[Rfam]
RNA sequence: UGAUGAGGUAGAGGUCGCGGGCUUCAAGAGUACGCUGUGGGAGAUGGGGAGAACAUCGAGGAACGCAGGGGAAAGGGAAGACCGCCGAAGUUUGCCUGGAUUCUCUAGACAGGCAGGCUGGGGCUGUUUCCGAAUAGGAACAGAACUGUCACGCGUACUUUCCGGAUACGCGUGUUGCGCUAUCUUGCAG
Numbered sequence: 001u002g003a004u005g006a007g008g009u010a011g012a013g014g015u016c017g018c019g020g021g022c023u024u025c026a027a028g029a030g031u032a033c034g035c036u037g038u039g040g041g042a043g044a045u046g047g048g049g050a051g052a053a054c055a056u057c058g059a060g061g062a063a064c065g066c067a068g069g070g071g072a073a074a075g076g077g078a079a080g081a082c083c084g085c086c087g088a089a090g091u092u093u094g095c096c097u098g099g100a101u102u103c104u105c106u107a108g109a110c111a112g113g114c115a116g117g118c119u120g121g122g123g124c125u126g127u128u129u130c131c132g133a134a135u136a137g138g139a140a141c142a143g144a145a146c147u148g149u150c151a152c153g154c155g156u157a158c159u160u161u162c163c164g165g166a167u168a169c170g171c172g173u174g175u176u177g178c179g180c181u182a183u184c185u186u187g188c189a190g
Stems, first nucleotide, its partner, number of pairs: 006185006017085004022080004033070001035068005089119010120147002124143007150174008